Rfam assigns this 69-nucleotide RNA from Eschrichtius robustus to the family "Small nucleolar RNA SNORD113/SNORD114 family". Rfam links the family to the GO terms RNA processing and nucleolus. The base pairs follow the family's consensus structure, which is taken from published work. The imprinted human domain at 14q32 contains two clusters of tandemly repeated small nucleolar RNAs named 14q(I) and 14q(II) snoRNAs. These two clusters are named SNORD113 and SNORD114 respectively in the HGNC approved gene symbol nomenclature. The snoRNAs found in both clusters are clearly related and are represented here by a single family. These snoRNAs are intron encoded and are processed from the tissue-specific non-coding human MEG8 RNA, which lies downstream of the imprinted genes DLK1 and GTL2. snoRNAs 14q(I) and 14q(II) differ from previously identified C/D box snoRNAs in their expression profiles and lack of complementarity to rRNA and snRNA. Homologues of these snoRNAs are found in the imprinted non-coding mouse transcript Rian, and in the rat non-coding Bsr (brain-specific repetitive) RNA. NCBI's taxonomy places the organism under Eukaryota, Gnathostomata, Amniota, Mysticeti, Eschrichtius. A reference for the family is Cavaille et al. (2002), "Identification of tandemly-repeated C/D snoRNA genes at the imprinted human 14q32 domain reminiscent of those at the Prader-Willi/Angelman syndrome region", Hum Mol Genet. A search with the family's covariance model found it, with a score of 62 bits.
[Rfam]
RNA sequence: UGGAUCAGUGAUGCCCACUGAUGGUAUAUGAGUCAUAUAUGAUGAGUGUGUGUCUGGAACGUGGUCCAA
Numbered sequence: 001u002g003g004a005u006c007a008g009u010g011a012u013g014c015c016c017a018c019u020g021a022u023g024g025u026a027u028a029u030g031a032g033u034c035a036u037a038u039a040u041g042a043u044g045a046g047u048g049u050g051u052g053u054c055u056g057g058a059a060c061g062u063g064g065u066c067c068a069a
Base pairs, nucleotide, nucleotide: 002067003066004065005064006063